[Rfam]
RNA sequence: GCCGAGACUAGAGUCACAUCCUGACAUGGCCCGUGUCCUGGUGUGCUAGAGUUCUCGGAGAGGAUCUGCUGGUCUUGAUUCACUGGUAGGGGCAGUCCGUGCCCCUGUUAGUGCCCAGAUCAGCAACAUGU
Numbered sequence: 001g002c003c004g005a006g007a008c009u010a011g012a013g014u015c016a017c018a019u020c021c022u023g024a025c026a027u028g029g030c031c032c033g034u035g036u037c038c039u040g041g042u043g044u045g046c047u048a049g050a051g052u053u054c055u056c057g058g059a060g061a062g063g064a065u066c067u068g069c070u071g072g073u074c075u076u077g078a079u080u081c082a083c084u085g086g087u088a089g090g091g092g093c094a095g096u097c098c099g100u101g102c103c104c105c106u107g108u109u110a111g112u113g114c115c116c117a118g119a120u121c122a123g124c125a126a127c128a129u130g131u
Stems, first nucleotide, its partner, number of pairs: 002058005007052003012047002015045006023037004069123007077115001081113006088106006
Shown here is a 131-nucleotide sequence from Jaculus jaculus, a member of the family "Small nucleolar RNA SNORA3/SNORA45 family".
On this family, see Huttenhofer et al., EMBO J 2001: "RNomics: an experimental approach that identifies 201 candidates for novel, small, non-messenger RNAs in mouse".
Rfam links the family to the GO terms nucleolus and RNA processing.
Rfam's curators write: The members of this family belong to the H/ACA class of snoRNAs which are thought to guide the sites of modification of uridines to pseudouridines.
It is annotated as an H/ACA-box small nucleolar RNA.
The family is grouped with related families in Rfam's "SNORA3 clan".